RNA sequence: AAUAUCUUGUCGGAGUGCCGAGCUACCUUUGGGUAGAUAGGCUGAGAUCGCGAAAGCGGGAUCCGUUGAACCUGAUCAGGUUAAUGCCUGCGAAGGGAAACAAGAGGGCGUGUCCC
Numbered sequence: 001a002a003u004a005u006c007u008u009g010u011c012g013g014a015g016u017g018c019c020g021a022g023c024u025a026c027c028u029u030u031g032g033g034u035a036g037a038u039a040g041g042c043u044g045a046g047a048u049c050g051c052g053a054a055a056g057c058g059g060g061a062u063c064c065g066u067u068g069a070a071c072c073u074g075a076u077c078a079g080g081u082u083a084a085u086g087c088c089u090g091c092g093a094a095g096g097g098a099a100a101c102a103a104g105a106g107g108g109c110g111u112g113u114c115c116c
Base pairs, nucleotide, nucleotide: 006104007103008102009101010100011065012064013063014062016059017042018041019040021038049058050057051056071096072095073094077090078089079088080087

Record summary
TPP riboswitch aptamer (THI element): a 116-nucleotide RNA sequence from Corallincola holothuriorum. About the family: Vitamin B(1) in its active form thiamin pyrophosphate (TPP) is an essential coenzyme that is synthesised by coupling of pyrimidine and thiazole moieties in bacteria. The previously detected thiamin-regulatory element, thi box was extended, resulting in a new, highly conserved RNA secondary structure, the THI element, which is widely distributed in eubacteria and also occurs in some archaea. The base pairs follow the family's consensus structure, which is taken from published work. The match comes from Rfam's covariance-model search (73 bits). The organism belongs to Corallincola, within Bacteria.